[Rfam]
RNA sequence: UUUUGGCCCCAUAAGUUUUGCAACUGUAGCAGUUUUGGCCCCCCAAUGCCAAUUUUUGGUAAAAAAAAUAACACGUGGCACCUCACUUAGGGUGCCACGUCAGCGUAGACUGAGUCAAAAUUGGCCUUGGGGGCCAAAACUGCCACAGAUGCAAAACUUAGGGGGCAGGGG
Numbered sequence: 001u002u003u004u005g006g007c008c009c010c011a012u013a014a015g016u017u018u019u020g021c022a023a024c025u026g027u028a029g030c031a032g033u034u035u036u037g038g039c040c041c042c043c044c045a046a047u048g049c050c051a052a053u054u055u056u057u058g059g060u061a062a063a064a065a066a067a068a069u070a071a072c073a074c075g076u077g078g079c080a081c082c083u084c085a086c087u088u089a090g091g092g093u094g095c096c097a098c099g100u101c102a103g104c105g106u107a108g109a110c111u112g113a114g115u116c117a118a119a120a121u122u123g124g125c126c127u128u129g130g131g132g133g134c135c136a137a138a139a140c141u142g143c144c145a146c147a148g149a150u151g152c153a154a155a156a157c158u159u160a161g162g163g164g165g166c167a168g169g170g171g
Stems, first nucleotide, its partner, number of pairs: 001171002004168001006166003012160011024148004029143015045127001073100002076097007

The record is a 171-nucleotide RNA sequence from Medicago truncatula, which matches "MIR2619 microRNA precursor family" in Rfam. Pairs were carried over by alignment from the consensus structure, which was predicted with RNAalifold.